[Rfam]
RNA sequence: AACGUAGGGAUGCCGAAUUGUCGCGGCUGCGACACACGGGGGACCCAAUCACGGGGUGAAUCGGCCGUUUAUUAGCCGUAGGGCCUACCUCUCCUUGCCCGAACCCGACAGCUAACCCCGGAGGCAAAGUCUUCGAGAGGAGUU
Numbered sequence: 001a002a003c004g005u006a007g008g009g010a011u012g013c014c015g016a017a018u019u020g021u022c023g024c025g026g027c028u029g030c031g032a033c034a035c036a037c038g039g040g041g042g043a044c045c046c047a048a049u050c051a052c053g054g055g056g057u058g059a060a061u062c063g064g065c066c067g068u069u070u071a072u073u074a075g076c077c078g079u080a081g082g083g084c085c086u087a088c089c090u091c092u093c094c095u096u097g098c099c100c101g102a103a104c105c106c107g108a109c110a111g112c113u114a115a116c117c118c119c120g121g122a123g124g125c126a127a128a129g130u131c132u133u134c135g136a137g138a139g140g141a142g143u144u
Stems, first nucleotide, its partner, number of pairs: 011126004019034006037120005046053001054106003062078004081100004
This 144-nucleotide RNA sequence from Sulfobacillus acidophilus belongs to the Rfam family "c-di-AMP riboswitch aptamer (ydaO/yuaA leader)". Taxonomically the source falls in Sulfobacillus acidophilus (Bacteria, Bacillati, Clostridia, Sulfobacillus). A search with the family's covariance model found it, with a score of 85 bits.